RNA: Actinobacteria sRNA Ms_IGR-5
RNA sequence: ACACGCGAAAGGAGGUGAUCCGAAGACAUGGUUUCUUUUCGGACUCGUGAGGUGACUGCGGGCUAAGGCCUGCCGUCGCACGCACUCUGUGCACCUCGGCAGGCCUGUCUGCCGAACACCACCGCAGUCACCCGACCCGUGAGUCGCCGGUCAGUCCGACCGGCUCCUGUCCGAACCUAGGCGGACGGGACCAAGGCUCACGGGUCGUCUGCG
Numbered sequence: 001a002c003a004c005g006c007g008a009a010a011g012g013a014g015g016u017g018a019u020c021c022g023a024a025g026a027c028a029u030g031g032u033u034u035c036u037u038u039u040c041g042g043a044c045u046c047g048u049g050a051g052g053u054g055a056c057u058g059c060g061g062g063c064u065a066a067g068g069c070c071u072g073c074c075g076u077c078g079c080a081c082g083c084a085c086u087c088u089g090u091g092c093a094c095c096u097c098g099g100c101a102g103g104c105c106u107g108u109c110u111g112c113c114g115a116a117c118a119c120c121a122c123c124g125c126a127g128u129c130a131c132c133c134g135a136c137c138c139g140u141g142a143g144u145c146g147c148c149g150g151u152c153a154g155u156c157c158g159a160c161c162g163g164c165u166c167c168u169g170u171c172c173g174a175a176c177c178u179a180g181g182c183g184g185a186c187g188g189g190a191c192c193a194a195g196g197c198u199c200a201c202g203g204g205u206c207g208u209c210u211g212c213g
Base pairs, nucleotide, nucleotide: 015059016058017057019055061113062112063111066108068104069103070102071101073099074098075097133207134206135205136204137203138202139201140200141199142198143197144196145195146164147163148162149161150160151159